[Rfam]
RNA: mir-504 microRNA precursor family
RNA sequence: UGCUGUUGGGAGACCCUGGUCUGCACUCUAUCUGUAUUCUUACUGAAGGGAGCGCAGGGCAGGGUUUCCCAUACAGAG
Numbered sequence: 001u002g003c004u005g006u007u008g009g010g011a012g013a014c015c016c017u018g019g020u021c022u023g024c025a026c027u028c029u030a031u032c033u034g035u036a037u038u039c040u041u042a043c044u045g046a047a048g049g050g051a052g053c054g055c056a057g058g059g060c061a062g063g064g065u066u067u068c069c070c071a072u073a074c075a076g077a078g
Base pairs, nucleotide, nucleotide: 003076004075005074006073007071008070009069010068011067012066013065014064015063016062017061018060020058021057022056023055024054026052027051028050029049031046032045034043035042036041